[Rfam]
RNA sequence: GACAACGCAUCGGGAGAGCCCGACACCCCUUGAGACACAGGUGGUGAAGGCGCCGAAGGAGCAACCACCCCGGAAACUCUCAGGCCCCAGGACCGGUGCGUUGCG
Numbered sequence: 001g002a003c004a005a006c007g008c009a010u011c012g013g014g015a016g017a018g019c020c021c022g023a024c025a026c027c028c029c030u031u032g033a034g035a036c037a038c039a040g041g042u043g044g045u046g047a048a049g050g051c052g053c054c055g056a057a058g059g060a061g062c063a064a065c066c067a068c069c070c071c072g073g074a075a076a077c078u079c080u081c082a083g084g085c086c087c088c089a090g091g092a093c094c095g096g097u098g099c100g101u102u103g104c105g
Stems, first nucleotide, its partner, number of pairs: 006100008020050002052085003055081002059079003065073002
The record is a 105-nucleotide RNA from Burkholderiales bacterium PBB6, which matches "Glycine riboswitch aptamer" in Rfam. It scores 58 bits against the family's covariance model. Lineage of the source: Bacteria > Pseudomonadati > Pseudomonadota > Betaproteobacteria > Burkholderiales. The pairing is the family consensus, mapped onto this sequence.